[Rfam]
RNA: pan motif
RNA sequence: CGGAUAGUAUUCAGAAAAGAAACUAUACCGAUAUAAUUAUUUUUUCACUAUAAACUAGUGAGCGCAGCUCAUAUCUUUUAGAAUGAGACUCAUUG
Numbered sequence: 001c002g003g004a005u006a007g008u009a010u011u012c013a014g015a016a017a018a019g020a021a022a023c024u025a026u027a028c029c030g031a032u033a034u035a036a037u038u039a040u041u042u043u044u045u046c047a048c049u050a051u052a053a054a055c056u057a058g059u060g061a062g063c064g065c066a067g068c069u070c071a072u073a074u075c076u077u078u079u080a081g082a083a084u085g086a087g088a089c090u091c092a093u094u095g
Stems, first nucleotide, its partner, number of pairs: 001030003004026005010021002066090002068087005074082003